The record is a 97-nucleotide RNA sequence from Oleiagrimonas soli, which matches "Glycine riboswitch aptamer" in Rfam. From the family's description: This family represents the bacterial glycine riboswitch. Glycine riboswitches usually consist of two metabolite-binding aptamers domains with similar structures in tandem.
RNA sequence: CGCGAACACUCUGGAGAGACCGGUUCGAUCCGGCGCCGAAGGGGCACGAAGCGCACCGCGCUUUCAAACUCUCAGGCAAAAGGACAGAGGGGCGCGC
Numbered sequence: 001c002g003c004g005a006a007c008a009c010u011c012u013g014g015a016g017a018g019a020c021c022g023g024u025u026c027g028a029u030c031c032g033g034c035g036c037c038g039a040a041g042g043g044g045c046a047c048g049a050a051g052c053g054c055a056c057c058g059c060g061c062u063u064u065c066a067a068a069c070u071c072u073c074a075g076g077c078a079a080a081a082g083g084a085c086a087g088a089g090g091g092g093c094g095c096g097c
Base pairs, nucleotide, nucleotide: 007091009089010088011087012086013085020033021032022031023030035077036076037075038073039072042071043070044069048064049063050062051061052060